The record is a 178-nucleotide sequence from Chlorogloeopsis fritschii, which matches "Antisense RNA which regulates isiA expression" in Rfam.
[Rfam]
RNA sequence: GAUAGCCAAAGAUGACGAAUGGGUUGAGGGUGGGGUUGGUAACAACACGGACAUCAUGAAUUGUGGCAUCGUACAGUCCACCCCAGUACAUCGCUUUUGCCACUAAUAACAAAGCAGCAGCUCCUAAAAAAAUCAGGUGGUGUCCUAAGAUAAAGCUGAGUUUCUUUGGAUCUUCCCA
Numbered sequence: 001g002a003u004a005g006c007c008a009a010a011g012a013u014g015a016c017g018a019a020u021g022g023g024u025u026g027a028g029g030g031u032g033g034g035g036u037u038g039g040u041a042a043c044a045a046c047a048c049g050g051a052c053a054u055c056a057u058g059a060a061u062u063g064u065g066g067c068a069u070c071g072u073a074c075a076g077u078c079c080a081c082c083c084c085a086g087u088a089c090a091u092c093g094c095u096u097u098u099g100c101c102a103c104u105a106a107u108a109a110c111a112a113a114g115c116a117g118c119a120g121c122u123c124c125u126a127a128a129a130a131a132a133u134c135a136g137g138u139g140g141u142g143u144c145c146u147a148a149g150a151u152a153a154a155g156c157u158g159a160g161u162u163u164c165u166u167u168g169g170a171u172c173u174u175c176c177c178a
Stems, first nucleotide, its partner, number of pairs: 136175002139172003144169002147166002

The match comes from Rfam's covariance-model search (136 bits). The family has 308 seed sequences and 3,397 matches in Rfam 15.1.